A member of the RNA family "RNA anti-toxin A" from Vagococcus acidifermentans, 91 nucleotides long. It scores 60 bits against the family's covariance model. Taxonomically the source falls in Vagococcus (Bacteria, Bacillati, Lactobacillales, Enterococcaceae).
RNA sequence: CAAUAAGCACGAAAAGAGAGAUAUGCGACAACAUAUCUCCCUUGUGUAGAACCGUUAAAAAGACGGUGGCUUUUAUAAAUAGGUUUUAACC
Numbered sequence: 001c002a003a004u005a006a007g008c009a010c011g012a013a014a015a016g017a018g019a020g021a022u023a024u025g026c027g028a029c030a031a032c033a034u035a036u037c038u039c040c041c042u043u044g045u046g047u048a049g050a051a052c053c054g055u056u057a058a059a060a061a062g063a064c065g066g067u068g069g070c071u072u073u074u075a076u077a078a079a080u081a082g083g084u085u086u087u088a089a090c091c
Base pairs, nucleotide, nucleotide: 022035023034024033025032051067052066053065054064055063056062
Dot-bracket structure: .....................((((......))))...............((((((.....))))))........................

The family's consensus secondary structure was predicted with RNAalifold. The literature on the family includes a 2010 paper in Nucleic Acids Res by Fozo et al., "Abundance of type I toxin-antitoxin systems in bacteria: searches for new candidates and discovery of novel families".